[Rfam]
Shown here is an 82-nucleotide RNA from Liquorilactobacillus vini, a member of the family "SAM-III riboswitch aptamer (SMK box)". NCBI's taxonomy places the organism under Bacteria, Bacillota, Lactobacillales, Liquorilactobacillus, Liquorilactobacillus vini. The family's consensus secondary structure is taken from published work.
RNA sequence: UAUUGUUACAGCACAUUCCCGAAAGGAUUCAUUUUUAAGUGAAGAUGCCUUGUAACCAAAUUUUUGAAUGGGGGAAUUUAUG
Number, nucleotide and partner (000 for none) at each position: 001u000002a000003u000004u000005g000006u000007u000008a000009c000010a000011g000012c000013a000014c000015a000016u076017u075018c074019c073020c072021g000022a000023a051024a050025g049026g048027a000028u043029u042030c041031a040032u039033u000034u000035u000036u000037a000038a000039g032040u031041g030042a029043a028044g000045a000046u000047g000048c026049c025050u024051u023052g000053u000054a000055a000056c071057c070058a000059a000060a000061u000062u000063u000064u000065u000066g000067a000068a000069u000070g057071g056072g020073g019074g018075a017076a016077u000078u000079u000080a000081u000082g000
On this family, see Fuchs et al., Proc Natl Acad Sci U S A 2007: "S-adenosylmethionine directly inhibits binding of 30S ribosomal subunits to the SMK box translational riboswitch RNA".